[Rfam]
The family of this 145-nucleotide RNA sequence from Sporosarcina sp. Te-1 is "FMN riboswitch aptamer (RFN element)".

RNA sequence: ACAAAACUUCGGGGCAAGGUGAAAUUCCUUACCGGCGGUGAUCGAGCAUAUUGCUCGUCAGUCCGUGACCCGUUUUCCACAUGGAAACGGUGGAGCUGGUGUAACUCCGGCACCGACAGUAUAGUCUGGAUGGGAGAAGUUUCUG
Numbered sequence: 001a002c003a004a005a006a007c008u009u010c011g012g013g014g015c016a017a018g019g020u021g022a023a024a025u026u027c028c029u030u031a032c033c034g035g036c037g038g039u040g041a042u043c044g045a046g047c048a049u050a051u052u053g054c055u056c057g058u059c060a061g062u063c064c065g066u067g068a069c070c071c072g073u074u075u076u077c078c079a080c081a082u083g084g085a086a087a088c089g090g091u092g093g094a095g096c097u098g099g100u101g102u103a104a105c106u107c108c109g110g111c112a113c114c115g116a117c118a119g120u121a122u123a124g125u126c127u128g129g130a131u132g133g134g135a136g137a138a139g140u141u142u143c144u145g
Stems, first nucleotide, its partner, number of pairs: 004142007017029003031125002033115002035066004061113002070090002095111005117128003

Pairs were carried over by alignment from the consensus structure, which is taken from published work. Gene Ontology term of the family: FMN binding. Taxonomically the source falls in Sporosarcina (Bacteria, Bacilli, Caryophanales, Caryophanaceae).